[Rfam]
RNA: chrB-a RNA
Organism: Rubritepida sp.
RNA sequence: AUCUAGGGGAGGGUUCGCGAUCGCCCCGUGAGGCUUCGGCCGAAGUAUCGCGUCCAAAACUCUGGUGCCCUGUCACCGCAAGGAGUGGACGCUUGUG
Numbered sequence: 001a002u003c004u005a006g007g008g009g010a011g012g013g014u015u016c017g018c019g020a021u022c023g024c025c026c027c028g029u030g031a032g033g034c035u036u037c038g039g040c041c042g043a044a045g046u047a048u049c050g051c052g053u054c055c056a057a058a059a060c061u062c063u064g065g066u067g068c069c070c071u072g073u074c075a076c077c078g079c080a081a082g083g084a085g086u087g088g089a090c091g092c093u094u095g096u097g
Base pairs, nucleotide, nucleotide: 006027007026008025009024050092051091052090053089054088055087